Bacterial RNase P class A: a 418-nucleotide RNA sequence from Altererythrobacter xiamenensis.
RNA sequence: UCAGGGGGCCGGGCAGCCGCGUUAGAGCUUGCUCUACCGAGGAAAGUCCGGGCUCCACGAAACGAGGGUGGCGGGUAACGCCCGCCCGGCGAGUGCCCGCGGGUACGAAGCCGAGGGACAGUGCCACAGAGAGUAUACCGCCGAUGGAGGGAGACCUCACAGGCAAGGGUGAAAGGGUGCGGCAAGAGCGCACCGGGUGACCGGCAACGGAAACCGCAUGGCAAACCCCACCCGGAGCAAGGCCAAAUAGGGGCCUCGCGCCAGUUCGCUGGCAGGGGCGUUUCGUCCCGAGAGGCCCGGGUUGGCUGCUUGAGCGCAGGGAGCAAUCCCUCGCCUAGAUGAAUGGCUGCCCCUGCGGCGCUGAUGUGCGAGCAUAUCGGCCGCAGGACAGAACCCGGCUUACAGGCCCCCUGACACC
Numbered sequence: 001u002c003a004g005g006g007g008g009c010c011g012g013g014c015a016g017c018c019g020c021g022u023u024a025g026a027g028c029u030u031g032c033u034c035u036a037c038c039g040a041g042g043a044a045a046g047u048c049c050g051g052g053c054u055c056c057a058c059g060a061a062a063c064g065a066g067g068g069u070g071g072c073g074g075g076u077a078a079c080g081c082c083c084g085c086c087c088g089g090c091g092a093g094u095g096c097c098c099g100c101g102g103g104u105a106c107g108a109a110g111c112c113g114a115g116g117g118a119c120a121g122u123g124c125c126a127c128a129g130a131g132a133g134u135a136u137a138c139c140g141c142c143g144a145u146g147g148a149g150g151g152a153g154a155c156c157u158c159a160c161a162g163g164c165a166a167g168g169g170u171g172a173a174a175g176g177g178u179g180c181g182g183c184a185a186g187a188g189c190g191c192a193c194c195g196g197g198u199g200a201c202c203g204g205c206a207a208c209g210g211a212a213a214c215c216g217c218a219u220g221g222c223a224a225a226c227c228c229c230a231c232c233c234g235g236a237g238c239a240a241g242g243c244c245a246a247a248u249a250g251g252g253g254c255c256u257c258g259c260g261c262c263a264g265u266u267c268g269c270u271g272g273c274a275g276g277g278g279c280g281u282u283u284c285g286u287c288c289c290g291a292g293a294g295g296c297c298c299g300g301g302u303u304g305g306c307u308g309c310u311u312g313a314g315c316g317c318a319g320g321g322a323g324c325a326a327u328c329c330c331u332c333g334c335c336u337a338g339a340u341g342a343a344u345g346g347c348u349g350c351c352c353c354u355g356c357g358g359c360g361c362u363g364a365u366g367u368g369c370g371a372g373c374a375u376a377u378c379g380g381c382c383g384c385a386g387g388a389c390a391g392a393a394c395c396c397g398g399c400u401u402a403c404a405g406g407c408c409c410c411c412u413g414a415c416a417c418c
Base pairs, nucleotide, nucleotide: 001414002413003412004411005410006409007408008407009406010405011403012351013350014349015348016347017346018345020039021038023036024035025034026033027032044401045400046399048398049397050396051395052394053237054236055235056234062283064281066233067232068231069230070229071085072084073083074082075081086115087113088112089111090110116228117227121226122225123222124221125220138168139167140164141163142162145161146160147158148157149156150155176194177193178192179191180190181189195217196215197214198213201210202209203208241307242306243305244304251298252297253296254295255294256293275289276288277287278286279285314334315333316332318331319330320329321328322327
Overview: By type it is a ribozyme.